Record summary
Shown here is a 144-nucleotide RNA from Streptomyces sp. ICBB 8177, a member of the family "SAM (S-adenosyl methionine) riboswitch aptamer". For this family Rfam cites "The aptamer core of SAM-IV riboswitches mimics the ligand-binding site of SAM-I riboswitches" (Weinberg et al., RNA, 2008). Its family is annotated with S-adenosylmethionine metabolic process and regulation of gene expression in the Gene Ontology.
RNA sequence: GGUCAUGAUUGUCAGCGCCGGCGUCGCGGGAGCCCCGCGGCGGCGGUCACCGGCCCCGGCCCGCUGACAGGCAACCCUUCCACCGCGACGGGGUGCCCCGGGUGACGACCGGGUCCCGUCGGCGCGGCGGGGCAAGCGCGGUCU
Numbered sequence: 001g002g003u004c005a006u007g008a009u010u011g012u013c014a015g016c017g018c019c020g021g022c023g024u025c026g027c028g029g030g031a032g033c034c035c036c037g038c039g040g041c042g043g044c045g046g047u048c049a050c051c052g053g054c055c056c057c058g059g060c061c062c063g064c065u066g067a068c069a070g071g072c073a074a075c076c077c078u079u080c081c082a083c084c085g086c087g088a089c090g091g092g093g094u095g096c097c098c099c100g101g102g103u104g105a106c107g108a109c110c111g112g113g114u115c116c117c118g119u120c121g122g123c124g125c126g127g128c129g130g131g132g133c134a135a136g137c138g139c140g141g142u143c144u
Stems, first nucleotide, its partner, number of pairs: 001110004009069001011068006020061002070097003075093003079088002113133009
The organism belongs to Streptomyces, within Bacteria.